[Rfam]
A member of the RNA family "L31-Actinobacteria ribosomal protein leader" from Micromonospora sp. Llam0, 69 nucleotides long. Rfam classes the family as a cis-regulatory leader.
RNA sequence: CAGGUUCCGGUUCACGCCCGAGUCGGCCCGCGCAACGGCGCGGCCGACGUCGACGGCGACCCGGCGACC
Numbered sequence: 001c002a003g004g005u006u007c008c009g010g011u012u013c014a015c016g017c018c019c020g021a022g023u024c025g026g027c028c029c030g031c032g033c034a035a036c037g038g039c040g041c042g043g044c045c046g047a048c049g050u051c052g053a054c055g056g057c058g059a060c061c062c063g064g065c066g067a068c069c
Stems, first nucleotide, its partner, number of pairs: 003069003007064004015058004019052003

The source organism's lineage runs through Bacteria, Actinomycetota, Actinomycetes, Micromonosporaceae and Micromonospora.